[Rfam]
RNA: RAGATH-28 RNA
Organism: Anaerotruncus colihominis
RNA sequence: AGGCGGUUGAUUCGUCCCGCCUGGGGAGGCCGGUGGAAAUACGGGCGAAAUAACCGGGCUGAAUGACAGGCUGGGUGGCGAAGC
Numbered sequence: 001a002g003g004c005g006g007u008u009g010a011u012u013c014g015u016c017c018c019g020c021c022u023g024g025g026g027a028g029g030c031c032g033g034u035g036g037a038a039a040u041a042c043g044g045g046c047g048a049a050a051u052a053a054c055c056g057g058g059c060u061g062a063a064u065g066a067c068a069g070g071c072u073g074g075g076u077g078g079c080g081a082a083g084c
Stems, first nucleotide, its partner, number of pairs: 001022006054074004059069003